[Rfam]
RNA sequence: GUCCCGUCAUCCCAGUGUUCAGACUACCUGUUCAGGGUUCUACUGGUGUACAGUAGUCUGCACAUUGGUUAGACUGGCCA
Numbered sequence: 001g002u003c004c005c006g007u008c009a010u011c012c013c014a015g016u017g018u019u020c021a022g023a024c025u026a027c028c029u030g031u032u033c034a035g036g037g038u039u040c041u042a043c044u045g046g047u048g049u050a051c052a053g054u055a056g057u058c059u060g061c062a063c064a065u066u067g068g069u070u071a072g073a074c075u076g077g078c079c080a
Base pairs, nucleotide, nucleotide: 012068013067014066015065016064017063018062020060021059022058023057024056025055026054028053029052030051031050033048034047
A member of the RNA family "mir-199 microRNA precursor family" from Esox lucius, 80 nucleotides long. The base pairs follow the family's consensus structure, which was predicted with RNAalifold. About the family: This family consists of the microRNA (miRNA) precursor mir-199 which appears to be specific to humans. Animal miRNAs are transcribed as ~70nt precursors and subsequently processed by the Dicer enzyme to give a ~22nt product. In this case the mature sequence comes from the 3' arm of the precursor. The extents of the hairpin precursors are not generally known and are estimated based on hairpin prediction. The products are thought to have regulatory roles through complementarity to mRNA. The involvement of Dicer in miRNA processing suggests a relationship with the phenomenon of RNA interference. miRNAs are numbered based on the sequence of the mature RNA. For this family Rfam cites "microRNAs: tiny regulators with great potential" (Ambros, Cell, 2001).